[Rfam]
The family of this 80-nucleotide RNA from Catagonus wagneri is "Small nucleolar RNA SNORD115". The family's consensus secondary structure was predicted with PFOLD. The source organism's lineage runs through Eukaryota, Euteleostomi, Artiodactyla, Suina and Catagonus. Rfam classes the family as a C/D-box small nucleolar RNA. The match comes from Rfam's covariance-model search (69 bits). Rfam 15.1 lists 3,387 matches to the family in 131 species.
RNA sequence: GGGUCAAUGCUGGGAACUCAUUAUGACAUGAAGAAAGAUAAUUACUUAAAAUCAAGCUCAAUAGGAAUACACUGAAGCCC
Numbered sequence: 001g002g003g004u005c006a007a008u009g010c011u012g013g014g015a016a017c018u019c020a021u022u023a024u025g026a027c028a029u030g031a032a033g034a035a036a037g038a039u040a041a042u043u044a045c046u047u048a049a050a051a052u053c054a055a056g057c058u059c060a061a062u063a064g065g066a067a068u069a070c071a072c073u074g075a076a077g078c079c080c
Stems, first nucleotide, its partner, number of pairs: 001080004005074002008071002